[Rfam]
RNA sequence: GACGGAGUUGUCAUGUGUCUGCCUGUCUACACUUGCUGUGCAGAACAUCCUCUCACCUGUACAGCAGGCACAGACAGGCAGUCGCAUGACAA
Numbered sequence: 001g002a003c004g005g006a007g008u009u010g011u012c013a014u015g016u017g018u019c020u021g022c023c024u025g026u027c028u029a030c031a032c033u034u035g036c037u038g039u040g041c042a043g044a045a046c047a048u049c050c051u052c053u054c055a056c057c058u059g060u061a062c063a064g065c066a067g068g069c070a071c072a073g074a075c076a077g078g079c080a081g082u083c084g085c086a087u088g089a090c091a092a
Base pairs, nucleotide, nucleotide: 015085016084017083020080021079022078023077024076025075026074027073028072032068034066035065036064037063038062039061041059042058043057
Dot-bracket structure: ..............(((..(((((((((...(.((((((.(((.............))).)))))).)...)))))))))..))).......